RNA sequence: ACCGGCUGCCCUCCAGACCCUCAGGGCAGGGGUGGGGGACCCACCGUUCCCGGCGCGUUCCGCGCGCCUCGGGGUGAAGCCGCGCACCGCGGCCGGGCACCGAUCGCCCGAACCCGACAGCUCACCUCGCCGGCGGUGAUCGGAGAUCAC
Numbered sequence: 001a002c003c004g005g006c007u008g009c010c011c012u013c014c015a016g017a018c019c020c021u022c023a024g025g026g027c028a029g030g031g032g033u034g035g036g037g038g039a040c041c042c043a044c045c046g047u048u049c050c051c052g053g054c055g056c057g058u059u060c061c062g063c064g065c066g067c068c069u070c071g072g073g074g075u076g077a078a079g080c081c082g083c084g085c086a087c088c089g090c091g092g093c094c095g096g097g098c099a100c101c102g103a104u105c106g107c108c109c110g111a112a113c114c115c116g117a118c119a120g121c122u123c124a125c126c127u128c129g130c131c132g133g134c135g136g137u138g139a140u141c142g143g144a145g146a147u148c149a150c
Base pairs, nucleotide, nucleotide: 005134006133007132011031012030013029032130033129034128035127036126037125042071072115073114074113080092081091082090083089095109096108097107098106
Annotation:
c-di-AMP riboswitch aptamer (ydaO/yuaA leader): a 150-nucleotide RNA sequence from Geodermatophilus sabuli. From the family's description: This family represents a conserved RNA structure found upstream of the ydaO and yuaA genes in Bacillus subtilis and related genes in other bacteria. Taxonomically the source falls in Geodermatophilus (Bacteria, Bacillati, Actinomycetes, Geodermatophilales). Pairs were carried over by alignment from the consensus structure.